[Rfam]
RNA sequence: GCAUUCUGAAGUACUGGCGUAGCUACAGAGAAGCCAGGUCCCUUCAGAGUGU
Numbered sequence: 001g002c003a004u005u006c007u008g009a010a011g012u013a014c015u016g017g018c019g020u021a022g023c024u025a026c027a028g029a030g031a032a033g034c035c036a037g038g039u040c041c042c043u044u045c046a047g048a049g050u051g052u
Stems, first nucleotide, its partner, number of pairs: 001052009014037005019026002
Record summary:
The record is a 52-nucleotide sequence from Podarcis muralis, which matches "MAT2A 3'UTR stem loop C" in Rfam. The literature on the family includes a 2011 paper in Genome Res by Parker et al., "New families of human regulatory RNA structures identified by comparative analysis of vertebrate genomes". A search with the family's covariance model found it, with a score of 65 bits. The family's RNA type in Rfam is cis-regulatory element.